[Rfam]
RNA sequence: AACCUAGCAAAGCAAAGCUAGCAAGCUAGCAACGCAAAGCUAGCAAGCUAGCAAGCUAGCAAGCUAGAAAGUUGCAACG
Numbered sequence: 001a002a003c004c005u006a007g008c009a010a011a012g013c014a015a016a017g018c019u020a021g022c023a024a025g026c027u028a029g030c031a032a033c034g035c036a037a038a039g040c041u042a043g044c045a046a047g048c049u050a051g052c053a054a055g056c057u058a059g060c061a062a063g064c065u066a067g068a069a070a071g072u073u074g075c076a077a078c079g
Stems, first nucleotide, its partner, number of pairs: 012035002017030005038073004042065003048059004